Annotation:
A member of the RNA family "Bacterial large signal recognition particle RNA" from Peptoniphilus sp. ING2-D1G, 265 nucleotides long. Rfam links the family to the GO terms signal recognition particle, plasma membrane targeting and SRP-dependent cotranslational protein targeting to membrane, signal sequence recognition. Clan: SRP clan. About the family: The signal recognition particle (SRP) is a universally conserved ribonucleoprotein involved in the co-translational targeting of proteins to membranes. It scores 193 bits against the family's covariance model. The source organism's lineage runs through Bacteria, Bacillati, Tissierellia, Tissierellales and Peptoniphilus.
RNA sequence: CCGUGAUAGACGGGGAAUUAGCGAUGCCCUGUAACCUGCGAUUCGCUACAGCGGGGUUGAAUUCCCAUCAGAGGGUGCAUAUUGUACAGUCUGCCCCAAGUGUGUGAUGUUGAUGGUAGGGUCCUGCGCAAUAUAUGCUUGUGAACCGUGUCAGGUCUUGACGGAAGCAGCACUAAGCAAGAUUUUAUAUGUGCCGUGGGAGCGCCUUAUCUGAGUUAACUGCUUGGGUACCGUGUAUGGUCUGGAUUCGAAGACGGGUUCACGG
Numbered sequence: 001c002c003g004u005g006a007u008a009g010a011c012g013g014g015g016a017a018u019u020a021g022c023g024a025u026g027c028c029c030u031g032u033a034a035c036c037u038g039c040g041a042u043u044c045g046c047u048a049c050a051g052c053g054g055g056g057u058u059g060a061a062u063u064c065c066c067a068u069c070a071g072a073g074g075g076u077g078c079a080u081a082u083u084g085u086a087c088a089g090u091c092u093g094c095c096c097c098a099a100g101u102g103u104g105u106g107a108u109g110u111u112g113a114u115g116g117u118a119g120g121g122u123c124c125u126g127c128g129c130a131a132u133a134u135a136u137g138c139u140u141g142u143g144a145a146c147c148g149u150g151u152c153a154g155g156u157c158u159u160g161a162c163g164g165a166a167g168c169a170g171c172a173c174u175a176a177g178c179a180a181g182a183u184u185u186u187a188u189a190u191g192u193g194c195c196g197u198g199g200g201a202g203c204g205c206c207u208u209a210u211c212u213g214a215g216u217u218a219a220c221u222g223c224u225u226g227g228g229u230a231c232c233g234u235g236u237a238u239g240g241u242c243u244g245g246a247u248u249c250g251a252a253g254a255c256g257g258g259u260u261c262a263c264g265g
Stems, first nucleotide, its partner, number of pairs: 001265006009058003012030004017025003035055005064258003068254002073249004079243001081241008092230002096227006104220002106217003115211008123200006129191002132189004138181005148173004156165003